[Rfam]
RNA sequence: UGUCGAAGCUCCAUCUACAAAUGGAUAAUACUUUGAUGUCAGUGUAUACGAGUCGUUGAAGGAACAAUACCCAACCUCUUGGUCUACCAACCAAGAGGUUGGGUAUUGUUCCGUU
Numbered sequence: 001u002g003u004c005g006a007a008g009c010u011c012c013a014u015c016u017a018c019a020a021a022u023g024g025a026u027a028a029u030a031c032u033u034u035g036a037u038g039u040c041a042g043u044g045u046a047u048a049c050g051a052g053u054c055g056u057u058g059a060a061g062g063a064a065c066a067a068u069a070c071c072c073a074a075c076c077u078c079u080u081g082g083u084c085u086a087c088c089a090a091c092c093a094a095g096a097g098g099u100u101g102g103g104u105a106u107u108g109u110u111c112c113g114u115u
Stems, first nucleotide, its partner, number of pairs: 010025005061112010072101003076097007
RNA: Plastid-psbA-1 3UTR RNA